[Rfam]
Background:
The record is a 134-nucleotide sequence from Danio rerio, which matches "U11 spliceosomal RNA" in Rfam.
RNA sequence: AAAAAGAGCAUCUGCUGUGAAUAGCGUAGCUGCGGAAGGGAUUCUUUGACACAGUUGCGGAAUCGCUAUCAAGAGACAAGAUGCACAAUUUUUAUAAUCUGAGGCUACCAAUGAUCUGUUAUCUUGGUGCCUCA
Number, nucleotide and partner (000 for none) at each position: 001a000002a000003a000004a000005a000006g000007a000008g084009c083010a082011u081012c080013u026014g025015c024016u023017g022018u000019g000020a000021a000022u017023a016024g015025c014026g013027u057028a056029g055030c054031u053032g052033c000034g050035g047036a046037a045038g044039g000040g000041a000042u000043u000044c038045u037046u036047u035048g000049a000050c034051a000052c032053a031054g030055u029056u028057g027058c000059g000060g077061a000062a000063u076064c075065g000066c000067u000068a000069u000070c000071a000072a000073g000074a000075g064076a063077c060078a000079a000080g012081a011082u010083g009084c008085a000086c000087a000088a000089u000090u000091u000092u000093u000094a000095u000096a000097a000098u000099c000100u000101g000102a132103g131104g130105c129106u000107a128108c127109c126110a125111a124112u000113g123114a122115u121116c000117u000118g000119u000120u000121a115122u114123c113124u111125u110126g109127g108128u107129g105130c104131c103132u102133c000134a000

Pairs were carried over by alignment from the consensus structure, which is taken from published work. The family is grouped with related families in Rfam's "U1 clan". Its family is annotated with pre-mRNA 5'-splice site binding, U11 snRNP and mRNA 5'-splice site recognition in the Gene Ontology.